[Rfam]
RNA sequence: UUUCCCUUUUAAACCAAUCCAGAGAGGUUGGUAAAGGCGAUACGAAUGAACCAGGCUUUUCAAAAAUAUCACUAUUUCUGUACCCGCAACCUUUUUGCCUUCUUGGUAGGAAGGUAUUUUUUU
Numbered sequence: 001u002u003u004c005c006c007u008u009u010u011a012a013a014c015c016a017a018u019c020c021a022g023a024g025a026g027g028u029u030g031g032u033a034a035a036g037g038c039g040a041u042a043c044g045a046a047u048g049a050a051c052c053a054g055g056c057u058u059u060u061c062a063a064a065a066a067u068a069u070c071a072c073u074a075u076u077u078c079u080g081u082a083c084c085c086g087c088a089a090c091c092u093u094u095u096u097g098c099c100u101u102c103u104u105g106g107u108a109g110g111a112a113g114g115u116a117u118u119u120u121u122u123u
Base pairs, nucleotide, nucleotide: 003039005037006036007035008034009033014031015030016029017028018027019026054085055084057082059080062077063076064075066073086118089115090114091113092112093111094110095109096108097107098106099105
Dot-bracket structure: ..(.(((((....((((((......)))))).))))).)..............((.(.(..(((.(......).)))..).).))(..(((((((((((.....)))))))))))..).....
Rfam assigns this 123-nucleotide sequence from Desulfuromonas acetoxidans to the family "PyrR binding site".
Rfam links the family to the GO terms pyrimidine nucleobase transport and pyrimidine nucleobase biosynthetic process.
Taxonomically the source falls in Desulfuromonas acetoxidans (Bacteria, Pseudomonadati, Thermodesulfobacteriota, Desulfuromonas).
Pairs were carried over by alignment from the consensus structure, which is taken from published work.
On this family, see Bonner et al., Nucleic Acids Res 2001: "Molecular recognition of pyr mRNA by the Bacillus subtilis attenuation regulatory protein PyrR".